[Rfam]
RNA sequence: GCCUCUAAUGAUGAUUCAAAUAAUACUUUCGUUCUUCCGAGGAUAUUUUCCAUGCGGAAACAACUAUUGGAGACCUGAACUGAAGAGGA
Number, nucleotide and partner (000 for none) at each position: 001g000002c000003c087004u086005c085006u084007a000008a000009u000010g000011a000012u000013g000014a000015u000016u000017c000018a000019a000020a000021u000022a000023a000024u000025a000026c000027u000028u000029u000030c000031g000032u000033u000034c000035u000036u000037c000038c000039g000040a000041g000042g000043a000044u000045a000046u000047u000048u000049u000050c000051c000052a000053u000054g000055c000056g000057g000058a000059a000060a000061c000062a000063a000064c000065u000066a000067u000068u000069g000070g000071a000072g000073a000074c000075c000076u000077g000078a000079a000080c000081u000082g000083a000084a006085g005086a004087g003088g000089a000
Description
Shown here is an 89-nucleotide sequence from Lactuca sativa, a member of the family "Small nucleolar RNA Z159/U59". Rfam classes the family as a C/D-box small nucleolar RNA. Rfam 15.1 lists 1,401 matches to the family in 272 species. The family's consensus secondary structure was predicted with PFOLD. NCBI's taxonomy places the organism under Eukaryota, Mesangiospermae, campanulids, Asteraceae, Lactuca. A reference for the family is Chen et al. (2003), "The high diversity of snoRNAs in plants: identification and comparative study of 120 snoRNA genes from Oryza sativa", Nucleic Acids Res.